RNA sequence: UAGUGUUACAGCUCUUUUAGAAUUUGUCUAGCAUGCUUUCCUGGUUUUGCCAGGAAGCCCCU
Numbered sequence: 001u002a003g004u005g006u007u008a009c010a011g012c013u014c015u016u017u018u019a020g021a022a023u024u025u026g027u028c029u030a031g032c033a034u035g036c037u038u039u040c041c042u043g044g045u046u047u048u049g050c051c052a053g054g055a056a057g058c059c060c061c062u
Base pairs, nucleotide, nucleotide: 035059037057038056039055040054041053042052043051044050045049
RNA: U7 small nuclear RNA